RNA sequence: CUUACAGUCAUCUUUGGCAUUCUGUCCACCUCCUUCUAUACAUAUAUGCAUGUGUAUAUAUAUAUGCGUUUCGUGUGAAAGAAGGAGGUGGGUAUACUGCCAAUAGAGAUCUGUUAG
Numbered sequence: 001c002u003u004a005c006a007g008u009c010a011u012c013u014u015u016g017g018c019a020u021u022c023u024g025u026c027c028a029c030c031u032c033c034u035u036c037u038a039u040a041c042a043u044a045u046a047u048g049c050a051u052g053u054g055u056a057u058a059u060a061u062a063u064a065u066g067c068g069u070u071u072c073g074u075g076u077g078a079a080a081g082a083a084g085g086a087g088g089u090g091g092g093u094a095u096a097c098u099g100c101c102a103a104u105a106g107a108g109a110u111c112u113g114u115u116a117g
Stems, first nucleotide, its partner, number of pairs: 011107001014103006023094015
This 117-nucleotide RNA sequence belongs to the Rfam family "MIR394 microRNA precursor family".
The sequence is in the family's curated seed alignment.
Gene Ontology terms of the family: miRNA-mediated post-transcriptional gene silencing and RISC complex.
Rfam 15.1 lists 724 matches to the family in 216 species.